[Rfam]
RNA: Bacterial RNase P class A
Organism: Flavobacterium kingsejongi
RNA sequence: GCAGCAGACCGCCUUAUCGCCGUUUUGAUUUAUCAGGAGGGAGGAAAGUCCGGGCACCAUAGAGCAGCAUAGCGGGUAACGCCCGUCACUGUGGGCAACCACGGGAGGACAAGUGCAACAGAAAGUAUGUACAGGUAAUGCUGUAGUGAAACCAGGUAAACUCUAUGCGGUGAAAUACCAAGUAUAUCGGCAUUUAAGGGUUGCUCGCCCGUUGCCGAAGGGUAGGUAGAUGGAUCCCGGUAGUAAUACCGGGGCUAGAUAAAUGAUAAGGAUCCUGUUUACAGGAUACAGAACCCGGCUUAUAGGUCUGCUUUUUUU
Numbered sequence: 001g002c003a004g005c006a007g008a009c010c011g012c013c014u015u016a017u018c019g020c021c022g023u024u025u026u027g028a029u030u031u032a033u034c035a036g037g038a039g040g041g042a043g044g045a046a047a048g049u050c051c052g053g054g055c056a057c058c059a060u061a062g063a064g065c066a067g068c069a070u071a072g073c074g075g076g077u078a079a080c081g082c083c084c085g086u087c088a089c090u091g092u093g094g095g096c097a098a099c100c101a102c103g104g105g106a107g108g109a110c111a112a113g114u115g116c117a118a119c120a121g122a123a124a125g126u127a128u129g130u131a132c133a134g135g136u137a138a139u140g141c142u143g144u145a146g147u148g149a150a151a152c153c154a155g156g157u158a159a160a161c162u163c164u165a166u167g168c169g170g171u172g173a174a175a176u177a178c179c180a181a182g183u184a185u186a187u188c189g190g191c192a193u194u195u196a197a198g199g200g201u202u203g204c205u206c207g208c209c210c211g212u213u214g215c216c217g218a219a220g221g222g223u224a225g226g227u228a229g230a231u232g233g234a235u236c237c238c239g240g241u242a243g244u245a246a247u248a249c250c251g252g253g254g255c256u257a258g259a260u261a262a263a264u265g266a267u268a269a270g271g272a273u274c275c276u277g278u279u280u281a282c283a284g285g286a287u288a289c290a291g292a293a294c295c296c297g298g299c300u301u302a303u304a305g306g307u308c309u310g311c312u313u314u315u316u317u318u
Base pairs, nucleotide, nucleotide: 001314003312004311005310006309007308008307009306010305011303012271013270014269015268016267017266018265020041021040023038024037025036026035027034028033046301047300048299050298051297052296053295054294055172056171057170058169062206063205064204065203067168068167069166070165071164072086073085074084075083076082087107089104090103091102092101093100094099108163109162113161114160115157116156130145131144132143133142134141176228177227178226179225187218188217189216190215191214198210199209200208201207235254236253237252238251239250240249241248242247